A member of the RNA family "Guanidine-II riboswitch aptamer (mini-ykkC)" from Luteimonas gilva, 47 nucleotides long. Simpler in structure and has fewer highly conserved nucleotide positions than the ykkC-yxkD leader. The family's consensus secondary structure is taken from published work. NCBI's taxonomy places the organism under Bacteria, Pseudomonadati, Lysobacterales, Lysobacteraceae, Luteimonas.

[Rfam]
RNA sequence: ACUCGGGGACGACCCCGAUGCGCCUUCCCGAACAGGGGACGACCCCG
Numbered sequence: 001a002c003u004c005g006g007g008g009a010c011g012a013c014c015c016c017g018a019u020g021c022g023c024c025u026u027c028c029c030g031a032a033c034a035g036g037g038g039a040c041g042a043c044c045c046c047g
Base pairs, nucleotide, nucleotide: 003018004017005016006015007014008013035046036045037044038043